[Rfam]
RNA sequence: GGUGAGAAAGCAGGGAACGAAAUCCAAGGGCAGCUGAGCUGCUAGGAGGAAACAGCUGCUUUUGGGAUUCCGUUGCCCGCUGUCACACUA
Numbered sequence: 001g002g003u004g005a006g007a008a009a010g011c012a013g014g015g016a017a018c019g020a021a022a023u024c025c026a027a028g029g030g031c032a033g034c035u036g037a038g039c040u041g042c043u044a045g046g047a048g049g050a051a052a053c054a055g056c057u058g059c060u061u062u063u064g065g066g067a068u069u070c071c072g073u074u075g076c077c078c079g080c081u082g083u084c085a086c087a088c089u090a
Base pairs, nucleotide, nucleotide: 009081010080011079013077017073018072019071021069022068023067024065025064026063027062030059031058032057033056034055035054036053
Dot-bracket structure: ........(((.(...(((.(((((((..(((((((................)))))))..)))).))).)))...).))).........

The family of this 90-nucleotide sequence from Sphenodon punctatus is "mir-191 microRNA precursor family". The source organism's lineage runs through Eukaryota, Deuterostomia, Chordata, Teleostomi and Sphenodon. The base pairs follow the family's consensus structure, which was predicted with RNAalifold. The match comes from Rfam's covariance-model search (59 bits).